[Rfam]
RNA sequence: CUGUGAAUUACGGGGCAGUUCAUCUUUGGCACAAAGCUAGGCACGUGUAUUCAGAAGUUCAGAUCGCUUCAGCAUCCAGUUCCAGUGCGUGCCAAAGGAGAAUUGCCCUGCGAUUUGCCC
Numbered sequence: 001c002u003g004u005g006a007a008u009u010a011c012g013g014g015g016c017a018g019u020u021c022a023u024c025u026u027u028g029g030c031a032c033a034a035a036g037c038u039a040g041g042c043a044c045g046u047g048u049a050u051u052c053a054g055a056a057g058u059u060c061a062g063a064u065c066g067c068u069u070c071a072g073c074a075u076c077c078a079g080u081u082c083c084a085g086u087g088c089g090u091g092c093c094a095a096a097g098g099a100g101a102a103u104u105g106c107c108c109u110g111c112g113a114u115u116u117g118c119c120c
Stems, first nucleotide, its partner, number of pairs: 005116005011110009021100001023098002027094006035086001
The record is a 120-nucleotide RNA sequence from Digitaria exilis, which matches "mir-399 microRNA precursor family" in Rfam.
Rfam's curators write: mir-399 was identified in both Arabidopsis thaliana and Oryza sativa computationally and was later experimentally verified. mir-399 is thought to target mRNAs coding for a phosphatase transporter. The mature sequence is excised from the 3' arm of the hairpin.
The match comes from Rfam's covariance-model search (60 bits).
For this family Rfam cites "Computational Identification of Plant MicroRNAs and Their Targets, Including a Stress-Induced miRNA" (Jones-Rhoades and Bartel, Mol Cell, 2004).
Lineage of the source: Eukaryota > commelinids > Poales > Paniceae > Digitaria.
The base pairs follow the family's consensus structure, which was predicted with PFOLD.